[Rfam]
About this RNA:
This 86-nucleotide RNA sequence from Vanilla planifolia belongs to the Rfam family "Small nucleolar RNA U61". Lineage of the source: Eukaryota > Streptophytina > Liliopsida > Orchidaceae > Vanilla. The family's consensus secondary structure was predicted with WAR. A search with the family's covariance model found it, with a score of 59 bits. It is annotated as a C/D-box small nucleolar RNA. The family has 8 seed sequences and 401 matches in Rfam 15.1. Rfam links the family to the GO terms RNA processing and nucleolus.
RNA sequence: UGGCGAUGAUGUGAACUUUUGUGUUCUGGAGGUCGACUGAAGUCUACCGAUGAAGGAAGCACAAUCCUCUAAGAAGUUCUGAGCUA
Numbered sequence: 001u002g003g004c005g006a007u008g009a010u011g012u013g014a015a016c017u018u019u020u021g022u023g024u025u026c027u028g029g030a031g032g033u034c035g036a037c038u039g040a041a042g043u044c045u046a047c048c049g050a051u052g053a054a055g056g057a058a059g060c061a062c063a064a065u066c067c068u069c070u071a072a073g074a075a076g077u078u079c080u081g082a083g084c085u086a
Base pairs, nucleotide, nucleotide: 001086002085003084004083
Dot-bracket structure: ((((..............................................................................))))